Rfam assigns this 31-nucleotide RNA sequence from Pomatorhinus ruficollis to the family "L31-Coriobacteria ribosomal protein leader". Rfam classes the family as a cis-regulatory leader. The base pairs follow the family's consensus structure, which is taken from published work. A reference for the family is Eckert and Weinberg (2020), "Discovery of 20 novel ribosomal leader candidates in bacteria and archaea", BMC Microbiol.
[Rfam]
Nucleotides: 031
Stems, first nucleotide, its partner, number of pairs: 001019008
Number, partner (000 for none) and nucleotide at each position: 001019g002018c003017c004016c005015u006014g007013g008012c009000c010000g011000g012008g013007c014006c015005a016004g017003g018002g019001c020000a021000g022000a023000g024000g025000g026000a027000a028000g029000g030000a031000g